A member of the RNA family "Alphaproteobacterial ar14" from Aerobium aerolatum, 122 nucleotides long. For this family Rfam cites "A conserved alpha-proteobacterial small RNA contributes to osmoadaptation and symbiotic efficiency of rhizobia on legume roots" (Robledo et al., Environ Microbiol, 2017). About the family: Smr14C2 was renamed NfeR1 (Nodule Formation Efficiency RNA) highly expressed in salt stress and during the symbiotic interaction on legume roots. Rfam classes the family as a small RNA. Its family is annotated with biological process involved in symbiotic interaction in the Gene Ontology. It scores 96 bits against the family's covariance model.

RNA sequence: GAGUUUUCGUCGGGGCUUUCCUCCUCCCAUGCCCUGAUGAAUAUGGCCCGAGACUUCCUCCUCCCAGUCGAGGGCCACUUAAACGACACCCGCCGGACCUCCUCCCCCGGCGGGUGUUGUUA
Numbered sequence: 001g002a003g004u005u006u007u008c009g010u011c012g013g014g015g016c017u018u019u020c021c022u023c024c025u026c027c028c029a030u031g032c033c034c035u036g037a038u039g040a041a042u043a044u045g046g047c048c049c050g051a052g053a054c055u056u057c058c059u060c061c062u063c064c065c066a067g068u069c070g071a072g073g074g075c076c077a078c079u080u081a082a083a084c085g086a087c088a089c090c091c092g093c094c095g096g097a098c099c100u101c102c103u104c105c106c107c108c109g110g111c112g113g114g115u116g117u118u119g120u121u122a
Stems, first nucleotide, its partner, number of pairs: 007040003011036006045076005052069003086117011